TrxA 5' UTR thermometer: an 88-nucleotide RNA from [Enterobacter] lignolyticus. Lineage of the source: Bacteria > Pseudomonadati > Gammaproteobacteria > Enterobacteriaceae > [Enterobacter] lignolyticus. Involved in protection against oxidative stress. The family's RNA type in Rfam is RNA thermoregulator.

RNA sequence: CGUUGAUUGUUGAUUAAUGCUACACCAACACACCAGGCUUAUUCCUGCGGAGUUAACUAUGAGCGAUAAAAUUAUUCACCUGACUGAC
Numbered sequence: 001c002g003u004u005g006a007u008u009g010u011u012g013a014u015u016a017a018u019g020c021u022a023c024a025c026c027a028a029c030a031c032a033c034c035a036g037g038c039u040u041a042u043u044c045c046u047g048c049g050g051a052g053u054u055a056a057c058u059a060u061g062a063g064c065g066a067u068a069a070a071a072u073u074a075u076u077c078a079c080c081u082g083a084c085u086g087a088c
Stems, first nucleotide, its partner, number of pairs: 008068005014062003022053002025050002034047004072087003076083002